[Rfam]
TPP riboswitch aptamer (THI element): a 104-nucleotide sequence from Paracoccus denitrificans. Rfam links the family to the GO term thiamine pyrophosphate binding. NCBI's taxonomy places the organism under Bacteria, Pseudomonadati, Pseudomonadota, Alphaproteobacteria, Paracoccus denitrificans. The sequence is in the family's curated seed alignment.
RNA sequence: CUCAUACACUUGGGGAGCCUCGCACGAGGCUGAGAGGUGCCGGGCACCGACCCAUCGAACCUGAUCCGGGUCAUGCCGGCGUAGGGAAGGGUAGAGUGAAGCGG
Number, nucleotide and partner (000 for none) at each position: 001c000002u000003c000004a000005u000006a092007c091008a000009c089010u088011u054012g053013g052014g051015g000016a000017g030018c029019c028020u027021c026022g000023c000024a000025c000026g021027a020028g019029g018030c017031u000032g000033a000034g000035a000036g000037g047038u046039g045040c044041c000042g000043g000044g040045c039046a038047c037048c000049g000050a000051c014052c013053c012054a011055u000056c000057g000058a000059a000060c085061c084062u083063g082064a000065u000066c079067c078068g077069g076070g000071u000072c000073a000074u000075g000076c069077c068078g067079g066080c000081g000082u063083a062084g061085g060086g000087a000088a010089g009090g000091g007092u006093a000094g000095a000096g000097u000098g000099a000100a000101g000102c000103g000104g000